RNA sequence: GUAUUCGCGGGUGCAGCAUCAUCAAGAUUCACAUACAGGCAAGGGGGCUACCUUUAUCGAUCGAGUAAAUUGUUACUGCACCAAUAAGAAUAUUUCCUUCAACUUCCUUUUGUACUUGAAAGGUAGUUCCUUCGAAGUGGGAAUCUUGAUGAUGCUGCAUCAGCUGGUAC
Number, nucleotide and partner (000 for none) at each position: 001g000002u000003a000004u000005u000006c000007g000008c000009g000010g161011g160012u159013g158014c157015a156016g155017c154018a153019u152020c151021a150022u149023c148024a147025a146026g145027a144028u143029u142030c141031a000032c139033a138034u000035a000036c000037a000038g000039g000040c000041a000042a000043g000044g000045g000046g000047g000048c000049u000050a000051c000052c000053u000054u000055u000056a000057u000058c000059g000060a000061u000062c000063g000064a000065g000066u000067a000068a000069a000070u000071u000072g000073u000074u000075a000076c000077u000078g000079c000080a000081c000082c000083a000084a000085u000086a000087a000088g000089a000090a000091u000092a000093u000094u000095u000096c000097c000098u000099u000100c000101a000102a000103c000104u000105u000106c000107c000108u000109u000110u000111u000112g000113u000114a000115c000116u000117u000118g000119a000120a000121a000122g000123g000124u000125a000126g000127u000128u000129c000130c000131u000132u000133c000134g000135a000136a000137g000138u033139g032140g000141g030142a029143a028144u027145c026146u025147u024148g023149a022150u021151g020152a019153u018154g017155c016156u015157g014158c013159a012160u011161c010162a000163g000164c000165u000166g000167g000168u000169a000170c000